Rfam assigns this 140-nucleotide RNA from Methylopila turkensis to the family "Alphaproteobacterial sRNA BjrC1505".
The literature on the family includes a 2012 paper in RNA Biol by Madhugiri et al., "Small RNAs of the Bradyrhizobium/Rhodopseudomonas lineage and their analysis".
It scores 98 bits against the family's covariance model.

RNA sequence: GGCAUCGUUAAGGCGGCGUUAACCUUUUCAAGCGAUUAAUGUGCUGUCCAGUUUUCUGGAUUCCGAGUGGUUCCUGUCCACUCUUUGUGACGCCUCCCUGUCAUGGACUUAAGGCCGCCGCUUCCGGCGGCCUUUUUUUG
Numbered sequence: 001g002g003c004a005u006c007g008u009u010a011a012g013g014c015g016g017c018g019u020u021a022a023c024c025u026u027u028u029c030a031a032g033c034g035a036u037u038a039a040u041g042u043g044c045u046g047u048c049c050a051g052u053u054u055u056c057u058g059g060a061u062u063c064c065g066a067g068u069g070g071u072u073c074c075u076g077u078c079c080a081c082u083c084u085u086u087g088u089g090a091c092g093c094c095u096c097c098c099u100g101u102c103a104u105g106g107a108c109u110u111a112a113g114g115c116c117g118c119c120g121c122u123u124c125c126g127g128c129g130g131c132c133u134u135u136u137u138u139u140g
Stems, first nucleotide, its partner, number of pairs: 002042003006013001015037002020035001023032001025030001047060004065083006089102004111134010